[Rfam]
RNA: Small nucleolar RNA U54
RNA sequence: AGCUCAAUGAUUUAAGACAAUGUUCAAUCCUGGUAAUAUAGGUUGUUCUGAAUCACAUUACGAUGUCAUAAACCUGUAUGAGAGCA
Numbered sequence: 001a002g003c004u005c006a007a008u009g010a011u012u013u014a015a016g017a018c019a020a021u022g023u024u025c026a027a028u029c030c031u032g033g034u035a036a037u038a039u040a041g042g043u044u045g046u047u048c049u050g051a052a053u054c055a056c057a058u059u060a061c062g063a064u065g066u067c068a069u070a071a072a073c074c075u076g077u078a079u080g081a082g083a084g085c086a
Base pairs, nucleotide, nucleotide: 002085003084004083005082